[Rfam]
RNA sequence: UUUUGAAAAUAAAGGAGCAAUAACCACUUUCUUGUUCUAGCAAGAGUGUUGGUAUUGCUCCUUU
Numbered sequence: 001u002u003u004u005g006a007a008a009a010u011a012a013a014g015g016a017g018c019a020a021u022a023a024c025c026a027c028u029u030u031c032u033u034g035u036u037c038u039a040g041c042a043a044g045a046g047u048g049u050u051g052g053u054a055u056u057g058c059u060c061c062u063u064u
Stems, first nucleotide, its partner, number of pairs: 011064012026049002029046005